[Rfam]
RNA sequence: CUUUCCAAGGAGCGUUGCGACAGGUCAGCCCUGCCAGGCUUGGAAAAACUUCUCUGAUCCGUUUUCUGCAGUUCUGAUGUGGCCGAGGCUCACUUGAUCUGUUUUCCGGAUAUCACCGAAUUCAACUGCGCUCACGUUAC
Numbered sequence: 001c002u003u004u005c006c007a008a009g010g011a012g013c014g015u016u017g018c019g020a021c022a023g024g025u026c027a028g029c030c031c032u033g034c035c036a037g038g039c040u041u042g043g044a045a046a047a048a049c050u051u052c053u054c055u056g057a058u059c060c061g062u063u064u065u066c067u068g069c070a071g072u073u074c075u076g077a078u079g080u081g082g083c084c085g086a087g088g089c090u091c092a093c094u095u096g097a098u099c100u101g102u103u104u105u106c107c108g109g110a111u112a113u114c115a116c117c118g119a120a121u122u123c124a125a126c127u128g129c130g131c132u133c134a135c136g137u138u139a140c
Stems, first nucleotide, its partner, number of pairs: 002046007021033004
RNA: SAH (S-adenosyl-L-homocysteine) riboswitch aptamer